[Rfam]
RNA: Small nucleolar RNA SNORD72
RNA sequence: AGCUUAUCGGUGAUGUUGUAAAAAUAAAUGUCUGAACAUAUGAGUACAAUAAUGAUUUCAGCAUCAAACUGAGAUGAGCU
Number, nucleotide and partner (000 for none) at each position: 001a000002g079003c078004u077005u076006a075007u074008c073009g000010g000011u000012g000013a000014u000015g000016u000017u000018g000019u000020a000021a000022a000023a000024a000025u000026a000027a000028a000029u000030g000031u000032c000033u000034g000035a000036a000037c000038a000039u000040a000041u000042g000043a000044g000045u000046a000047c000048a000049a000050u000051a000052a000053u000054g000055a000056u000057u000058u000059c000060a000061g000062c000063a000064u000065c000066a000067a000068a000069c000070u000071g000072a000073g008074a007075u006076g005077a004078g003079c002080u000